[Rfam]
Nucleotides: 577
Base pairs, nucleotide, nucleotide: 001543002542003541004540010537011536012535013534014533015532016531018529019528020527035059036058037057038056039055044049060301061300063298064297065296066295067294068293069290070289071288072287073286075279076278077277078276080275081274082273083272084271085204086203089200090199098191099190100189101188108184109183110182111181112180114178115177116176117175119174120173121172123170124169125168126167127166128165131162132161133160302306314522315521316520317519318518319517320516321514322513325339326338327337342377343376344375345374346373347372348371349370353364354363355362356361381508382507383506385439386438387437390436391435392432393431394430395429397428400427401426402425408419409418410417411416440458441457442456443455444454445453459463479495480494481493482492483491556573557572558571559570560569
Number, partner (000 for none) and nucleotide at each position: 001543u002542a003541g004540a005000a006000u007000a008000a009000u010537g011536u012535a013534g014533g015532u016531a017000a018529g019528g020527g021000a022000a023000g024000u025000c026000g027000g028000c029000a030000a031000a032000u033000c034000c035059g036058a037057u038056c039055c040000g041000u042000a043000a044049c045000u046000u047000c048000g049044g050000g051000a052000u053000a054000a055039g056038g057037a058036u059035u060301g061300g062000c063298u064297c065296u066295g067294a068293g069290g070289a071288c072287u073286g074000a075279g076278u077277c078276g079000u080275g081274c082273c083272g084271g085204g086203c087000u088000u089200g090199g091000u092000c093000g094000g095000g096000a097000a098191g099190u100189g101188g102000a103000g104000c105000g106000g107000u108184g109183u110182c111181a112180a113000c114178g115177u116176g117175c118000c119174g120173g121172g122000c123170c124169u125168g126167g127166g128165c129000g130000a131162g132161g133160a134000g135000a136000a137000a138000a139000u140000u141000g142000c143000g144000u145000u146000u147000c148000u149000g150000c151000g152000c153000u154000u155000u156000u157000g158000g159000a160133u161132c162131c163000g164000a165128g166127c167126u168125c169124g170123g171000u172121c173120c174119c175117g176116u177115g178114c179000c180112u181111u182110g183109g184108c185000c186000a187000c188101c189100c190099a191098c192000g193000g194000a195000u196000c197000u198000u199090c200089c201000u202000u203086g204085c205000u206000g207000c208000g209000a210000g211000u212000c213000g214000u215000u216000a217000g218000c219000c220000g221000u222000g223000u224000g225000g226000u227000u228000a229000c230000c231000g232000c233000u234000g235000g236000c237000u238000u239000u240000u241000g242000c243000u244000a245000g246000c247000u248000g249000g250000u251000c252000g253000a254000c255000c256000u257000g258000g259000c260000u261000u262000a263000c264000g265000a266000u267000c268000u269000c270000u271084u272083c273082g274081g275080c276078c277077g278076a279075c280000a281000u282000u283000c284000a285000a286073c287072a288071g289070u290069c291000a292000a293068c294067u295066c296065a297064g298063a299000a300061c301060u302306g303000g304000c305000a306302c307000g308000g309000a310000c311000a312000a313000g314522g315521g316520g317519a318518a319517u320516c321514c322513g323000a324000c325339u326338g327337u328000c329000u330000a331000a332000u333000u334000a335000a336000a337327a338326c339325a340000a341000a342377g343376c344375a345374u346373u347372g348371c349370g350000a351000u352000g353364g354363c355362c356361c357000c358000a359000a360000c361356g362355g363354g364353u365000g366000u367000u368000g369000a370349c371348g372347c373346a374345a375344u376343g377342u378000g379000a380000u381508u382507u383506c384000u385439g386438c387437c388000c389000a390436g391435u392432g393431c394430u395429c396000u397428g398000a399000a400427u401426g402425u403000c404000a405000a406000a407000g408419u409418g410417a411416a412000g413000a414000a415000a416411u417410u418409c419408a420000a421000g422000c423000a424000a425402g426401c427400g428397c429395g430394g431393g432392u433000a434000a435391a436390c437387g438386g439385c440458g441457g442456g443455a444454g445453u446000a447000a448000c449000u450000a451000u452000g453445a454444c455443u456442c457441u458440c459463u460000u461000a462000a463459g464000g465000u466000a467000g468000c469000c470000a471000a472000a473000u474000g475000c476000c477000u478000c479495g480494u481493c482492a483491u484000c485000u486000a487000a488000u489000u490000a491483g492482u493481g494480a495479c496000g497000c498000g499000c500000a501000u502000g503000a504000a505000u506383g507382g508381a509000u510000u511000a512000a513322c514321g515000a516320g517319a518318u519317u520316c521315c522314c523000u524000c525000u526000g527020u528019c529018c530000c531016u532015a533014u534013c535012u536011a537010c538000u539000a540004u541003c542002u543001a544000g545000c546000g547000a548000a549000a550000c551000c552000a553000c554000g555000g556573c557572c558571a559570a560569g561000g562000g563000a564000a565000c566000g567000g568000g569560c570559u571558u572557g573556g574000a575000a576000a577000a
Description
Eukaryotic large subunit ribosomal RNA: a 577-nucleotide part of an RNA from Rhodnius prolixus. It scores 2967 bits against the family's covariance model.